[Rfam]
RNA sequence: GUGUAUUCUUGGCUUUGAGAACUGAAUUCCAUGGGUUGUAAUUGAAUCUUGAACAGACCCAUGGGACUCAGUUCUUCAGCUUGGAUAUCUCUG
Numbered sequence: 001g002u003g004u005a006u007u008c009u010u011g012g013c014u015u016u017g018a019g020a021a022c023u024g025a026a027u028u029c030c031a032u033g034g035g036u037u038g039u040a041a042u043u044g045a046a047u048c049u050u051g052a053a054c055a056g057a058c059c060c061a062u063g064g065g066a067c068u069c070a071g072u073u074c075u076u077c078a079g080c081u082u083g084g085a086u087a088u089c090u091c092u093g
Stems, first nucleotide, its partner, number of pairs: 008084002011081003018075008033060004
Rfam assigns this 93-nucleotide RNA sequence from Crocodylus porosus to the family "mir-146 microRNA precursor family". The literature on the family includes a 2002 paper in Curr Biol by Lagos-Quintana et al., "Identification of tissue-specific microRNAs from mouse". The source organism's lineage runs through Eukaryota, Opisthokonta, Chordata, Vertebrata and Crocodylus. The match comes from Rfam's covariance-model search (83 bits). The base pairs follow the family's consensus structure, which was predicted with WAR.